[Rfam]
RNA sequence: CAGCUGUAAUGGCUACAAAGUAAGGAAGUCGAGUGACAAGAUCGCUUAAGGCUUGGAUGCGAGGGUUUCCUCAAUUCUAGCGUCGCCCACUCGAAGCUCCAGGUGGAGAUACACUCGUGCAGGAAACUCACGACUGCUGCUAUCUCCCUCAGCAAUGACUAGAAUAAUCAUAGGGAGUUUUCACUUAGCAUGAUACUAGUCACCUGAAGCUGGCGAAGCUGGAUUACGACGGUAGAAAUUCGAGUCUGCGAAAUAUACGCUCGGCAACUUUUUUUUU
Dot-bracket structure: .(((.......)))...(((.((((..(((((((((.(...((((...((..(.((..(.((((....))))..).(((.(((((.(((.(((.((((.((((.(.((((.((.(((((.((....)))))))....))..)))).)(...)...(((((((....((((....(((......)))....)))).))))))))))).))))..)))...)))....))))).)))...)).)..).)))))..).).))))))))..)))).)))..

Rfam assigns this 277-nucleotide RNA from Erysiphe neolycopersici to the family "Fungal signal recognition particle RNA". Rfam classes the family as a non-coding RNA gene. The family's consensus secondary structure is taken from published work.